This 100-nucleotide RNA sequence belongs to the Rfam family "L4-Archaeoglobi ribosomal protein leades". It is one of the family's seed sequences. The family's RNA type in Rfam is cis-regulatory leader. On this family, see Eckert and Weinberg, BMC Microbiol 2020: "Discovery of 20 novel ribosomal leader candidates in bacteria and archaea".

RNA sequence: CUGACAACCGCGUCCGGGUCAAUUGCGGCUUGCAACACCCACUCUCGCUCCCCGUUGGGCCAGAAAUGGCCCUCACAGAGGGAGAACGCGUGACAGUCAG
Numbered sequence: 001c002u003g004a005c006a007a008c009c010g011c012g013u014c015c016g017g018g019u020c021a022a023u024u025g026c027g028g029c030u031u032g033c034a035a036c037a038c039c040c041a042c043u044c045u046c047g048c049u050c051c052c053c054g055u056u057g058g059g060c061c062a063g064a065a066a067u068g069g070c071c072c073u074c075a076c077a078g079a080g081g082g083a084g085a086a087c088g089c090g091u092g093a094c095a096g097u098c099a100g
Base pairs, nucleotide, nucleotide: 001100002099003098004097005096009090010089011088012087013086016040017039018038023035024034025033026032027031043085044084045083046082048080049079050078